[Rfam]
RNA sequence: CCCAUUGCAAUGGCCGGCAGCACGCCCUACAUUUGGAGUGUCCUUCGGGACUAUGGACAUAAACGCGCUCGUAAUAAGCGGAUCGGACCCGGGGGCGGUACCCGGCGGCUCCACCAAACAUCCUUCAUUUGGGGAUCAUGGGGCCGAAAUAGGAUCGACGAACGUCUAAAGGUGUUGCUUUGUCUCGGUGAGUUACCACCGUUAUCGGUACAAAAUGUACAAUUGCAAAUGACAAUCGUGCUCCGGUAGCUCUGGCUGCGUAAGCAGUCCGAAAAACCGAAAAUUAAGCCCUAGCGCUUUGCAGUGUUAGGCGGGGUUUGCAGGUACCUGGCAACAGAAACCUGCGCU
Numbered sequence: 001c002c003c004a005u006u007g008c009a010a011u012g013g014c015c016g017g018c019a020g021c022a023c024g025c026c027c028u029a030c031a032u033u034u035g036g037a038g039u040g041u042c043c044u045u046c047g048g049g050a051c052u053a054u055g056g057a058c059a060u061a062a063a064c065g066c067g068c069u070c071g072u073a074a075u076a077a078g079c080g081g082a083u084c085g086g087a088c089c090c091g092g093g094g095g096c097g098g099u100a101c102c103c104g105g106c107g108g109c110u111c112c113a114c115c116a117a118a119c120a121u122c123c124u125u126c127a128u129u130u131g132g133g134g135a136u137c138a139u140g141g142g143g144c145c146g147a148a149a150u151a152g153g154a155u156c157g158a159c160g161a162a163c164g165u166c167u168a169a170a171g172g173u174g175u176u177g178c179u180u181u182g183u184c185u186c187g188g189u190g191a192g193u194u195a196c197c198a199c200c201g202u203u204a205u206c207g208g209u210a211c212a213a214a215a216u217g218u219a220c221a222a223u224u225g226c227a228a229a230u231g232a233c234a235a236u237c238g239u240g241c242u243c244c245g246g247u248a249g250c251u252c253u254g255g256c257u258g259c260g261u262a263a264g265c266a267g268u269c270c271g272a273a274a275a276a277c278c279g280a281a282a283a284u285u286a287a288g289c290c291c292u293a294g295c296g297c298u299u300u301g302c303a304g305u306g307u308u309a310g311g312c313g314g315g316g317u318u319u320g321c322a323g324g325u326a327c328c329u330g331g332c333a334a335c336a337g338a339a340a341c342c343u344g345c346g347c348u
Stems, first nucleotide, its partner, number of pairs: 040051004055185005065178002067175002070172001079164002083161003089105005106146007186201004192211002195209003314329004320345006
The record is a 348-nucleotide RNA sequence from Sulfitobacter aestuariivivens, which matches "Alphaproteobacteria transfer-messenger RNA" in Rfam. Pairs were carried over by alignment from the consensus structure, which is taken from published work. NCBI's taxonomy places the organism under Bacteria, Pseudomonadota, Alphaproteobacteria, Roseobacteraceae, Sulfitobacter. For this family Rfam cites "Phylogenetic analysis of tmRNA secondary structure" (Williams and Bartel, RNA, 1996). The match comes from Rfam's covariance-model search (314 bits).